[Rfam]
Nucleotides: 587
Base pairs, nucleotide, nucleotide: 001583002582003581004580005579006578007577008576010575011574012573014570015569022404023403024402025401027400028399029396030395031394032393033392035201036200037199038198042193043192045190046189047188048187051154052153053152054151055150056149057148058147059146060145061144063142064141065140066139068137078136079135080134081133082132085119086118087117094113095112096111097110098109099108100107101106158181159180160179162178163177164176165175166174167173204216205215206214207213217239218238219237220236221235222234240385242342243341248300249299250298251297252296253295254280255279257275258274259273260272261271262270281290282289305328306327307326308325311322312321313320330339331338332337353379354378355377356376357375358374359373361372362371413454414453415452417451418448419447420446421445422444423443424442428438429437465540466538467537468536469535470532471529472528473527474526475525478503479502481498482497483496484495485494486493505519506518507517508516509515546564547563548562549561550559551558552557
Number, partner (000 for none) and nucleotide at each position: 001583c002582c003581c004580g005579c006578g007577g008576u009000u010575a011574g012573a013000c014570g015569g016000a017000a018000a019000g020000a021000c022404c023403c024402c025401a026000u027400g028399a029396a030395c031394c032393u033392u034000u035201a036200c037199u038198c039000u040000a041000g042193c043192u044000u045190u046189g047188c048187a049000u050000u051154g052153g053152c054151a055150u056149c057148a058147g059146g060145a061144a062000u063142g064141u065140g066139a067000u068137g069000u070000g071000c072000a073000g074000g075000a076000u077000a078136g079135g080134u081133g082132g083000u084000a085119g086118g087117c088000a089000u090000u091000g092000a093000a094113a095112c096111u097110u098109g099108g100107a101106c102000g103000c104000c105000a106101g107100u108099c109098u110097g111096a112095g113094u114000g115000g116000a117087g118086c119085c120000a121000u122000c123000c124000u125000u126000g127000a128000g129000a130000u131000a132082c133081c134080a135079c136078c137068c138000u139066u140065c141064g142063c143000c144061u145060u146059c147058u148057u149056g150055a151054u152053g153052u154051c155000u156000a157000a158181c159180c160179g161000c162178g163177g164176c165175c166174c167173g168000u169000u170000a171000u172000c173167c174166g175165g176164g177163u178162c179160c180159g181158g182000g183000a184000c185000c186000c187048u188047g189046c190045a191000u192043g193042g194000u195000g196000g197000g198038g199037a200036g201035u202000u203000u204216g205215a206214c207213u208000g209000g210000g211000g212000c213207g214206g215205u216204c217239g218238c219237c220236u221235c222234c223000c224000a225000a226000a227000u228000c229000g230000u231000a232000a233000c234222g235221g236220a237219g238218g239217c240385g241000c242342g243341c244000g245000a246000a247000g248300g249299u250298u251297g252296g253295c254280u255279c256000a257275g258274a259273c260272c261271g262270g263000u264000c265000g266000g267000a268000a269000a270262u271261c272260g273259g274258u275257c276000g277000u278000u279255g280254a281290g282289u283000g284000c285000a286000a287000u288000g289282g290281c291000a292000g293000a294000a295253g296252c297251c298250a299249g300248c301000c302000u303000g304000a305328c306327u307326g308325c309000g310000a311322g312321a313320c314000u315000g316000a317000c318000a319000a320313g321312u322311c323000g324000a325308g326307c327306a328305g329000a330339g331338a332337c333000g334000a335000a336000a337332g338331u339330c340000g341243g342242c343000c344000a345000u346000a347000g348000u349000g350000a351000u352000c353379c354378g355377g356376u357375g358374g359373u360000c361372c362371c363000a364000a365000g366000u367000g368000g369000g370000a371362g372361g373359g374358c375357c376356a377355u378354c379353g380000c381000u382000c383000a384000a385240c386000g387000g388000a389000u390000a391000a392033a393032a394031g395030g396029u397000a398000c399028u400027c401025u402024g403023g404022g405000g406000a407000u408000a409000a410000c411000a412000g413454g414453c415452u416000g417451a418448u419447g420446a421445u422444g423443c424442c425000c426000a427000a428438g429437a430000g431000u432000c433000c434000a435000u436000a437429u438428c439000g440000a441000c442424g443423g444422c445421a446420u447419c448418g449000u450000u451417u452415g453414g454413c455000a456000c457000c458000u459000c460000g461000a462000u463000g464000u465540c466538g467537g468536c469535u470532c471529a472528u473527c474526u475525c476000a477000u478503c479502c480000u481498g482497g483496g484495g485494c486493c487000g488000g489000a490000g491000c492000a493486g494485g495484u496483c497482c498481c499000a500000a501000g502479g503478g504000u505519a506518c507517g508516g509515c510000u511000g512000u513000u514000c515509g516508c517507c518506g519505u520000u521000u522000a523000a524000a525475g526474a527473g528472g529471u530000a531000c532470g533000u534000g535469a536468g537467c538466u539000g540465g541000g542000u543000u544000u545000a546564g547563a548562a549561c550559g551558u552557c553000g554000u555000g556000a557552g558551a559550c560000a561549g562548u563547u564546c565000g566000g567000u568000c569015c570014c571000u572000a573012u574011c575010u576008g577007c578006c579005g580004u581003g582002g583001g584000u585000g586000c587000a
Bacterial large subunit ribosomal RNA: a 587-nucleotide part of an RNA from Rhodobacter sp. 24-YEA-8. It scores 2663 bits against the family's covariance model. The base pairs follow the family's consensus structure, which is taken from published work.